[Rfam]
RNA sequence: UGACCCGGUCAGGCCCGACGCCAAAGACAAAGAACCAGGUAAAGGGCUUGGGGAAACCCCACCCCGCCCCGCCCGUAUCGCGCCGUCACCCACAAGAGUGGUCAUCGCCAACUCAACUGGCGCUCAGGGGAUUUCGUGGUGCAACGUCAGCCGCGACAGAACGCAAGAACGCAAGACAACCGAACAUGAGACGGCCCCCGCCGGGACUGCAAUCCCGAACGAGGGCCUGACCACCGAGGAAGAAUGAGGCUCUUCCCC
Numbered sequence: 001u002g003a004c005c006c007g008g009u010c011a012g013g014c015c016c017g018a019c020g021c022c023a024a025a026g027a028c029a030a031a032g033a034a035c036c037a038g039g040u041a042a043a044g045g046g047c048u049u050g051g052g053g054a055a056a057c058c059c060c061a062c063c064c065c066g067c068c069c070c071g072c073c074c075g076u077a078u079c080g081c082g083c084c085g086u087c088a089c090c091c092a093c094a095a096g097a098g099u100g101g102u103c104a105u106c107g108c109c110a111a112c113u114c115a116a117c118u119g120g121c122g123c124u125c126a127g128g129g130g131a132u133u134u135c136g137u138g139g140u141g142c143a144a145c146g147u148c149a150g151c152c153g154c155g156a157c158a159g160a161a162c163g164c165a166a167g168a169a170c171g172c173a174a175g176a177c178a179a180c181c182g183a184a185c186a187u188g189a190g191a192c193g194g195c196c197c198c199c200g201c202c203g204g205g206a207c208u209g210c211a212a213u214c215c216c217g218a219a220c221g222a223g224g225g226c227c228u229g230a231c232c233a234c235c236g237a238g239g240a241a242g243a244a245u246g247a248g249g250c251u252c253u254u255c256c257c258c
Base pairs, nucleotide, nucleotide: 007235008234009233012073013072014071017070086101087100088099089098091096117167118166120164121163122162193227194226195225196224197223199221200220203216204215205214206213238256239255240254241253242252